A member of the RNA family "sroC RNA" from Biostraticola tofi, 158 nucleotides long.
[Rfam]
RNA sequence: ACUAAUAACGAUAAUAAGGGUGGGUUAUAACCCACCCUAUCGAUUGCUGGAAAAGGCAAGGACAGACAGACGUGCGGCGGCCGUUCCCCGCUGCGCGGUUCAUAUAGCCGUUCAUCAAUCUUCAGGGUAGCCAUGCUACCCUUUUUUACCGGAGUUUU
Number, nucleotide and partner (000 for none) at each position: 001a000002c000003u000004a000005a000006u000007a000008a000009c000010g000011a000012u000013a156014a155015u000016a000017a000018g037019g036020g035021u034022g032023g031024g000025u000026u000027a000028u000029a000030a000031c023032c022033c000034a021035c020036c019037c018038u126039a000040u124041c000042g123043a119044u118045u117046g116047c000048u000049g113050g112051a000052a000053a000054a000055g000056g000057c000058a000059a100060g000061g000062a000063c000064a000065g000066a000067c000068a000069g000070a000071c000072g096073u095074g094075c093076g092077g091078c090079g089080g088081c000082c000083g000084u000085u000086c000087c000088c080089c079090g078091c077092u076093g075094c074095g073096c072097g000098g000099u000100u059101c000102a000103u000104a000105u000106a000107g000108c000109c000110g000111u000112u050113c049114a000115u000116c046117a045118a044119u043120c000121u000122u000123c042124a040125g000126g038127g000128u000129a000130g000131c000132c000133a000134u000135g000136c000137u000138a000139c000140c000141c000142u000143u000144u000145u000146u000147u000148a000149c000150c000151g000152g000153a000154g000155u014156u013157u000158u000
The base pairs follow the family's consensus structure, which was predicted with PFOLD. About the family: This family consists of a number of bacterial sroC RNA genes of around 160 bases in length. sroC is found in several Enterobacterial species. It is annotated as a small RNA. A search with the family's covariance model found it, with a score of 67 bits. For this family Rfam cites "RNomics in Escherichia coli detects new sRNA species and indicates parallel transcriptional output in bacteria" (Vogel et al., Nucleic Acids Res, 2003). Its family is annotated with RNA binding and regulation of RNA stability in the Gene Ontology.